[Rfam]
Shown here is a 121-nucleotide sequence from Varanus komodoensis, a member of the family "Small nucleolar RNA SNORA55".
About the family: ACA55 is a member of the H/ACA class of snoRNA that guide the sites of modification of uridines to pseudouridines.
NCBI's taxonomy places the organism under Eukaryota, Vertebrata, Teleostomi, Toxicofera, Varanus.
It scores 50 bits against the family's covariance model.
Rfam links the family to the GO terms nucleolus and RNA processing.
The family's consensus secondary structure was predicted with PFOLD.

RNA sequence: UCAUCUGCAUUUUCCCCAGUCAUUGGUAUGAGGGGCAGGCCUGUGGACAUGUGAUGCAGAGUAAAUGCAGGCAAGUUUAUGUUUUUUCAUAGAGACAUUUGCCUCUAGGCUCUGAACAUUU
Numbered sequence: 001u002c003a004u005c006u007g008c009a010u011u012u013u014c015c016c017c018a019g020u021c022a023u024u025g026g027u028a029u030g031a032g033g034g035g036c037a038g039g040c041c042u043g044u045g046g047a048c049a050u051g052u053g054a055u056g057c058a059g060a061g062u063a064a065a066u067g068c069a070g071g072c073a074a075g076u077u078u079a080u081g082u083u084u085u086u087u088c089a090u091a092g093a094g095a096c097a098u099u100u101g102c103c104u105c106u107a108g109g110c111u112c113u114g115a116a117c118a119u120u121u
Stems, first nucleotide, its partner, number of pairs: 002056004013047003017043003021039001057114005069104008083095003